Shown here is a 78-nucleotide sequence from Undibacterium sp. KW1, a member of the family "Pseudomonas sRNA P9". On this family, see Livny et al., Nucleic Acids Res 2006: "Identification of 17 Pseudomonas aeruginosa sRNAs and prediction of sRNA-encoding genes in 10 diverse pathogens using the bioinformatic tool sRNAPredict2". The source organism's lineage runs through Bacteria, Pseudomonadota, Betaproteobacteria, Burkholderiales and Undibacterium. Rfam classes the family as a non-coding RNA gene.
RNA sequence: AGCAUUAAGACCACCAUUAUCGCAAUGGUGGGUUAGCGCUUUUUCAUUUUUUCGCAACCCGCCUACGAGGCGGGUGCA
Numbered sequence: 001a002g003c004a005u006u007a008a009g010a011c012c013a014c015c016a017u018u019a020u021c022g023c024a025a026u027g028g029u030g031g032g033u034u035a036g037c038g039c040u041u042u043u044u045c046a047u048u049u050u051u052u053c054g055c056a057a058c059c060c061g062c063c064u065a066c067g068a069g070g071c072g073g074g075u076g077c078a
Stems, first nucleotide, its partner, number of pairs: 011031007054077002057075007
Record summary
A search with the family's covariance model found it, with a score of 50 bits. Rfam describes the family as follows. This small RNA (sRNA) was computationally identified in the genome of the opportunistic pathogen Pseudomonas aeruginosa and its expression verified by northern blot analysis. P9 appears to be conserved in several Pseudomonas species in addition to Bordetella spp. In both Pseudomonas and Bordetella spp P9 appears to be located upstream of a predicted threonine dehydratase gene. P9 has a predicted Rho independent terminator at the 3' end but the function of P9 is unknown. This sRNA also appears to be present in the Betaproteobacteria (Burkholderia and Ralstonia species).